[Rfam]
A member of the RNA family "L13-Bacteroidia ribosomal protein leader", 76 nucleotides long.
RNA sequence: GGGGGUAAGCCUUAGAGCCUCCACCGCAAUCGUGUUAAUAGUCACGCUUUUGGCCGAGCUUGGCGGUUAGUGAAUC
Numbered sequence: 001g002g003g004g005g006u007a008a009g010c011c012u013u014a015g016a017g018c019c020u021c022c023a024c025c026g027c028a029a030u031c032g033u034g035u036u037a038a039u040a041g042u043c044a045c046g047c048u049u050u051u052g053g054c055c056g057a058g059c060u061u062g063g064c065g066g067u068u069a070g071u072g073a074a075u076c
Base pairs, nucleotide, nucleotide: 001022002021003020004019005018006017035070036069037068038067039066041064042063043062044061046059047058048057049056
Dot-bracket structure: ((((((..........))))))............(((((.((((.((((......)))).)))).)))))......

Overview:
The family's consensus secondary structure is taken from published work. The family's RNA type in Rfam is cis-regulatory leader.